A member of the RNA family "UnaL2 LINE 3' element" from Sinocyclocheilus anshuiensis, 54 nucleotides long. On this family, see Baba et al., RNA 2004: "Solution structure of an RNA stem-loop derived from the 3' conserved region of eel LINE UnaL2".
[Rfam]
RNA sequence: AUUGUCCUCAUUUGUAAGUCGCUUUGGAUAAAAGCAUCUGCUAAAUGUAAUGUA
Numbered sequence: 001a002u003u004g005u006c007c008u009c010a011u012u013u014g015u016a017a018g019u020c021g022c023u024u025u026g027g028a029u030a031a032a033a034g035c036a037u038c039u040g041c042u043a044a045a046u047g048u049a050a051u052g053u054a
Stems, first nucleotide, its partner, number of pairs: 013043001014041003021035005
The family's consensus secondary structure is taken from published work. The organism belongs to Sinocyclocheilus, within Eukaryota. Rfam describes the family as follows. The eel long interspersed element (LINE) UnaL2 and its partner short interspersed element (SINE) share a conserved 3' tail containing a stem-loop that is critical for their retrotransposition. Presumably, the first step of retrotransposition is the recognition of their 3' tails by UnaL2-encoded reverse transcriptase.